Shown here is a 97-nucleotide RNA sequence, a member of the family "DUF3800-V RNA". It is one of the family's seed sequences.
RNA sequence: CUGUGAGCGAUAAGACCGCUACGGGUUGUUCCGGGUGCUCCUCUCCGUAUGGUGAGUAUGAACCCGGACACCACAAACUCGUAGGGCGCGUUCACUG
Numbered sequence: 001c002u003g004u005g006a007g008c009g010a011u012a013a014g015a016c017c018g019c020u021a022c023g024g025g026u027u028g029u030u031c032c033g034g035g036u037g038c039u040c041c042u043c044u045c046c047g048u049a050u051g052g053u054g055a056g057u058a059u060g061a062a063c064c065c066g067g068a069c070a071c072c073a074c075a076a077a078c079u080c081g082u083a084g085g086g087c088g089c090g091u092u093c094a095c096u097g
Stems, first nucleotide, its partner, number of pairs: 001097001003095006022081006029075001030068007041056003045052002
The family's RNA type in Rfam is small RNA. Pairs were carried over by alignment from the consensus structure, which is taken from published work.